[Rfam]
RNA sequence: AGCUGGUCCGAAGGUAAAGAGUUAUCUCAGUUGAUUGUUUGCAGUCAGUUACAGAUCAAGUUCCUUGUUCUGUUCUUCUCCCUCUUCUCACUACUGCACUUGACUGGUCUUAU
Numbered sequence: 001a002g003c004u005g006g007u008c009c010g011a012a013g014g015u016a017a018a019g020a021g022u023u024a025u026c027u028c029a030g031u032u033g034a035u036u037g038u039u040u041g042c043a044g045u046c047a048g049u050u051a052c053a054g055a056u057c058a059a060g061u062u063c064c065u066u067g068u069u070c071u072g073u074u075c076u077u078c079u080c081c082c083u084c085u086u087c088u089c090a091c092u093a094c095u096g097c098a099c100u101u102g103a104c105u106g107g108u109c110u111u112a113u
Stems, first nucleotide, its partner, number of pairs: 002108007010101002014097002016092001019089003044074001047071002
The family of this 113-nucleotide sequence from Carlito syrichta is "Y RNA". A search with the family's covariance model found it, with a score of 58 bits. It is annotated as a non-coding RNA gene. The base pairs follow the family's consensus structure, which is taken from published work.